[Rfam]
A member of the RNA family "Small nucleolar RNA SNORD73" from Pelusios castaneus, 70 nucleotides long.
Rfam classes the family as a C/D-box small nucleolar RNA.
Lineage of the source: Eukaryota > Opisthokonta > Craniata > Testudinata > Pelusios.

RNA sequence: AAUGAAUGAUGACAACAUGUUUCGGUCCCAGAUGACACUAAGUGAUUAUACUCUCCCAUUUUCUGACAUU
Numbered sequence: 001a002a003u004g005a006a007u008g009a010u011g012a013c014a015a016c017a018u019g020u021u022u023c024g025g026u027c028c029c030a031g032a033u034g035a036c037a038c039u040a041a042g043u044g045a046u047u048a049u050a051c052u053c054u055c056c057c058a059u060u061u062u063c064u065g066a067c068a069u070u
Stems, first nucleotide, its partner, number of pairs: 001070004